[Rfam]
RNA sequence: CCCGUGUCUAAAUGAUGAAAAAAAUGUUGGUAGGGACAUCUGAGUCAAGUUGAGGAAAUGCCAACUUUUCUGACUACACGGG
Numbered sequence: 001c002c003c004g005u006g007u008c009u010a011a012a013u014g015a016u017g018a019a020a021a022a023a024a025u026g027u028u029g030g031u032a033g034g035g036a037c038a039u040c041u042g043a044g045u046c047a048a049g050u051u052g053a054g055g056a057a058a059u060g061c062c063a064a065c066u067u068u069u070c071u072g073a074c075u076a077c078a079c080g081g082g
Stems, first nucleotide, its partner, number of pairs: 001082005

A member of the RNA family "Small nucleolar RNA SNORD74" from Myripristis murdjan, 82 nucleotides long. Clan: SNORD74 clan. The organism belongs to Myripristis, within Eukaryota. The base pairs follow the family's consensus structure, which was predicted with PFOLD.